Rfam assigns this 96-nucleotide RNA from Hapsidospora chrysogena to the family "Small nucleolar RNA Z13/snr52". The match comes from Rfam's covariance-model search (78 bits). Gene Ontology terms of the family: nucleolus and RNA processing.
RNA sequence: CACCUCCACAUGAUGAAUUAUUACGGAUGUAAAUUUUUGUCACAACUGAAGCGCAAUACUGUUGAGAUUUCCGUUGCCUUCCUUCUGAUCGGAGAC
Numbered sequence: 001c002a003c004c005u006c007c008a009c010a011u012g013a014u015g016a017a018u019u020a021u022u023a024c025g026g027a028u029g030u031a032a033a034u035u036u037u038u039g040u041c042a043c044a045a046c047u048g049a050a051g052c053g054c055a056a057u058a059c060u061g062u063u064g065a066g067a068u069u070u071c072c073g074u075u076g077c078c079u080u081c082c083u084u085c086u087g088a089u090c091g092g093a094g095a096c
Stems, first nucleotide, its partner, number of pairs: 004094002024073004